The family of this 135-nucleotide RNA sequence from Lysobacter sp. Root494 is "Glycine riboswitch aptamer". Clan: Glycine riboswitch clan. This family represents the bacterial glycine riboswitch. Pairs were carried over by alignment from the consensus structure. Its family is annotated with glycine biosynthetic process in the Gene Ontology.
[Rfam]
RNA sequence: GCGAAACACUCUGGAGAGACCGGCUCGCACGUUGUGGUAGCGAGAACCGGCGCCGAAGGGGCAAGAAGCACGGUCGGGAUUCCUCCCCUCCCGCCCGCUUCCCAAACUCUCAGGCAGAAGGACAGAGGGGCACGA
Numbered sequence: 001g002c003g004a005a006a007c008a009c010u011c012u013g014g015a016g017a018g019a020c021c022g023g024c025u026c027g028c029a030c031g032u033u034g035u036g037g038u039a040g041c042g043a044g045a046a047c048c049g050g051c052g053c054c055g056a057a058g059g060g061g062c063a064a065g066a067a068g069c070a071c072g073g074u075c076g077g078g079a080u081u082c083c084u085c086c087c088c089u090c091c092c093g094c095c096c097g098c099u100u101c102c103c104a105a106a107c108u109c110u111c112a113g114g115c116a117g118a119a120g121g122a123c124a125g126a127g128g129g130g131c132a133c134g135a
Base pairs, nucleotide, nucleotide: 007129009127010126011125012124013123020050021049022048023047052115053114054113055111056110059109060108061107065102